This 367-nucleotide RNA sequence from Vibrio astriarenae belongs to the Rfam family "transfer-messenger RNA". Lineage of the source: Bacteria > Pseudomonadati > Gammaproteobacteria > Vibrionales > Vibrio. Rfam classes the family as a non-coding RNA gene.
RNA sequence: GGGGCUGAUUUAGGAUUCGACAGGAAUUUUGCAGUCUGAGGUGCAUGCCGUGGGGCGGUUGGCCACGUAAAAAGCCGCAAAAAAAUAGUCGCAAACGACGAAAACUACGCACUAGCAGCUUAAUAACCUGCUGAGAGCUCUCUUGCCCUAGCUUCCGCUUUUAAGACGGGGACCAACAAGAGAUCAAACCCAAAAGAGCUAGCCCGGAUUCUCCCGCCUGAGAGAUGAACGGCGAAGUUUAAUUCAGGAUAGCCAUCAACUAGCGUGUCGGUUCGCAGGUCGGUGGUGAAAUUAAAGAUCGACUAAGCAUGUAGUACCAAUGAUGAAUGGUUUUUGGACGCGGGUUCAACUCCCGCCAGCUCCACCA
Numbered sequence: 001g002g003g004g005c006u007g008a009u010u011u012a013g014g015a016u017u018c019g020a021c022a023g024g025a026a027u028u029u030u031g032c033a034g035u036c037u038g039a040g041g042u043g044c045a046u047g048c049c050g051u052g053g054g055g056c057g058g059u060u061g062g063c064c065a066c067g068u069a070a071a072a073a074g075c076c077g078c079a080a081a082a083a084a085a086u087a088g089u090c091g092c093a094a095a096c097g098a099c100g101a102a103a104a105c106u107a108c109g110c111a112c113u114a115g116c117a118g119c120u121u122a123a124u125a126a127c128c129u130g131c132u133g134a135g136a137g138c139u140c141u142c143u144u145g146c147c148c149u150a151g152c153u154u155c156c157g158c159u160u161u162u163a164a165g166a167c168g169g170g171g172a173c174c175a176a177c178a179a180g181a182g183a184u185c186a187a188a189c190c191c192a193a194a195a196g197a198g199c200u201a202g203c204c205c206g207g208a209u210u211c212u213c214c215c216g217c218c219u220g221a222g223a224g225a226u227g228a229a230c231g232g233c234g235a236a237g238u239u240u241a242a243u244u245c246a247g248g249a250u251a252g253c254c255a256u257c258a259a260c261u262a263g264c265g266u267g268u269c270g271g272u273u274c275g276c277a278g279g280u281c282g283g284u285g286g287u288g289a290a291a292u293u294a295a296a297g298a299u300c301g302a303c304u305a306a307g308c309a310u311g312u313a314g315u316a317c318c319a320a321u322g323a324u325g326a327a328u329g330g331u332u333u334u335u336g337g338a339c340g341c342g343g344g345u346u347c348a349a350c351u352c353c354c355g356c357c358a359g360c361u362c363c364a365c366c367a
Base pairs, nucleotide, nucleotide: 001363002362003361004360005359006358007357021336022335023334024333025332026331027330028329030327034324035323036322040318041317042316044311045310046309047308048307049067050066051065052064053063055078056077057076058075059074060073112135113134115131116130117129118128139183140182141181142180143179144178146171147170148169149168152165153164154163157199158198159197160196161195162194203232204231216250218248219247252287253286254285255284256283257282259280260279261278263276264275265274267303268302269301270300271299272298273297340356341355342354343353344352